This 66-nucleotide RNA from Mandrillus leucophaeus belongs to the Rfam family "Small nucleolar RNA SNORD77". Rfam describes the family as follows. U77 belongs to the C/D family of snoRNAs. It is predicted to guide 2'O-ribose methylation of large 28S rRNA subunit at position A1521. On this family, see Tycowski et al., Curr Biol 2004: "Guide RNAs with 5' caps and novel box C/D snoRNA-like domains for modification of snRNAs in metazoa". It scores 69 bits against the family's covariance model. Taxonomically the source falls in Mandrillus (Eukaryota, Opisthokonta, Chordata, Cercopithecinae). Rfam 15.1 lists 396 matches to the family in 167 species. The base pairs follow the family's consensus structure, which was predicted with RNAalifold. The family's RNA type in Rfam is C/D-box small nucleolar RNA.
Nucleotides: 066
Stems, first nucleotide, its partner, number of pairs: 001064004006038005013028004043055002046052001
Number, partner (000 for none) and nucleotide at each position: 001064a002063u003062a004061c005000u006038a007037u008036g009035a010034u011000g012000u013028u014027u015026g016025c017000a018000u019000a020000g021000u022000u023000c024000a025016g026015c027014a028013g029000a030000u031000u032000g033000a034010a035009u036008u037007a038006u039000g040000a041000a042000g043055a044054g045000a046052u047000c048000u049000a050000c051000c052046a053000c054044u055043u056000a057000u058000c059000u060000g061004g062003u063002a064001u065000u066000a